[Rfam]
RNA sequence: GUGCCCAAUGAUGUCUACGUUAACCAUGCUAAUGCUGAAAUACUUUGAAGUUAAGUUGUAUGUUCUGAGGGAACC
Numbered sequence: 001g002u003g004c005c006c007a008a009u010g011a012u013g014u015c016u017a018c019g020u021u022a023a024c025c026a027u028g029c030u031a032a033u034g035c036u037g038a039a040a041u042a043c044u045u046u047g048a049a050g051u052u053a054a055g056u057u058g059u060a061u062g063u064u065c066u067g068a069g070g071g072a073a074c075c
Stems, first nucleotide, its partner, number of pairs: 001074002004071002
RNA: Small nucleolar RNA snoR53Y